Rfam assigns this 103-nucleotide RNA sequence from Clostridium sp. CAG:510 to the family "TPP riboswitch aptamer (THI element)". About the family: Vitamin B(1) in its active form thiamin pyrophosphate (TPP) is an essential coenzyme that is synthesised by coupling of pyrimidine and thiazole moieties in bacteria. The base pairs follow the family's consensus structure, which is taken from published work. The organism belongs to Clostridium, within Bacteria.

RNA sequence: AAACAUUGCUAGGGGCGCAUUUCGCUGAGAUUGUAUCUUCAGAUACUAACCCUCACUACUUGAACCGGAUAAUACCGGCGUAAGGAAGCAACGAGACAUCUUU
Numbered sequence: 001a002a003a004c005a006u007u008g009c010u011a012g013g014g015g016c017g018c019a020u021u022u023c024g025c026u027g028a029g030a031u032u033g034u035a036u037c038u039u040c041a042g043a044u045a046c047u048a049a050c051c052c053u054c055a056c057u058a059c060u061u062g063a064a065c066c067g068g069a070u071a072a073u074a075c076c077g078g079c080g081u082a083a084g085g086a087a088g089c090a091a092c093g094a095g096a097c098a099u100c101u102u103u
Stems, first nucleotide, its partner, number of pairs: 006091005011053004017025002033046004059084004065078004